[Rfam]
RNA sequence: CGUUUAUAUUACCCAAGUCUGAGGUAACUGAAUGUUUCAGCCCAGCGUGCAUUAAGCUCCUGUGGCUUGAAGUGAAAUUUUGGAACGCUCUGCGAAAACGGAGCAAC
Numbered sequence: 001c002g003u004u005u006a007u008a009u010u011a012c013c014c015a016a017g018u019c020u021g022a023g024g025u026a027a028c029u030g031a032a033u034g035u036u037u038c039a040g041c042c043c044a045g046c047g048u049g050c051a052u053u054a055a056g057c058u059c060c061u062g063u064g065g066c067u068u069g070a071a072g073u074g075a076a077a078u079u080u081u082g083g084a085a086c087g088c089u090c091u092g093c094g095a096a097a098a099c100g101g102a103g104c105a106a107c
Stems, first nucleotide, its partner, number of pairs: 003032004009027005035072004040066003087104006
This 107-nucleotide RNA from Gongylonema pulchrum belongs to the Rfam family "SL1 RNA". Rfam 15.1 lists 1,095 matches to the family in 28 species. The match comes from Rfam's covariance-model search (84 bits). The literature on the family includes a 2001 paper in Gene by Dassanayake et al., "Trans-spliced leader RNA, 5S-rRNA genes and novel variant orphan spliced-leader of the lymphatic filarial nematode Wuchereria bancrofti, and a sensitive polymerase chain reaction based detection assay". Pairs were carried over by alignment from the consensus structure, which is taken from published work. The source organism's lineage runs through Eukaryota, Opisthokonta, Metazoa, Spirurina and Gongylonema. This family represents the SL1 RNA. SL1 is commonly located in the spacer region between 5S-rRNA genes where it is involved in trans-splicing. The family is grouped with related families in Rfam's "SL clan".